About this RNA
The record is a 167-nucleotide RNA, which matches "Small Cajal body specific RNA 1" in Rfam. About the family: scaRNAs are a specific class of small nuclear RNAs which localise to the Cajal bodies and guide the modification of RNA polymerase II transcribed spliceosomal RNAs U1, U2, U4, U5 and U12. ACA35 belong to the H/ACA box class of guide RNAs as it has the predicted hairpin-hinge-hairpin-tail structure, conserved H/ACA-box motifs and is found associated with GAR1.
[Rfam]
RNA sequence: AUGCACCAGAUACUGACCUGUCUGCCAGCAGCUCAGUUUUUUUCACACUGAUGCCUGCAUGACUGUGGCUGUCAGGUCCAAACCGGUGCAACAAAAAACACAAGACCCUGAGAUUUAAGCCCUGAGAAAGAGGAACUCCUCAGGUGUUAUAACUCAAGGGCACAUCA
Numbered sequence: 001a002u003g004c005a006c007c008a009g010a011u012a013c014u015g016a017c018c019u020g021u022c023u024g025c026c027a028g029c030a031g032c033u034c035a036g037u038u039u040u041u042u043u044c045a046c047a048c049u050g051a052u053g054c055c056u057g058c059a060u061g062a063c064u065g066u067g068g069c070u071g072u073c074a075g076g077u078c079c080a081a082a083c084c085g086g087u088g089c090a091a092c093a094a095a096a097a098a099c100a101c102a103a104g105a106c107c108c109u110g111a112g113a114u115u116u117a118a119g120c121c122c123u124g125a126g127a128a129a130g131a132g133g134a135a136c137u138c139c140u141c142a143g144g145u146g147u148u149a150u151a152a153c154u155c156a157a158g159g160g161c162a163c164a165u166c167a
Base pairs, nucleotide, nucleotide: 003089004088005087006086007085015078016077017076018075020073022071024069025068026067027060028058029057030056031055032053034050035049036048037047039045106160107159124140126138127137141158144155146153147152
The family's RNA type in Rfam is small Cajal body RNA. It is one of the family's seed sequences.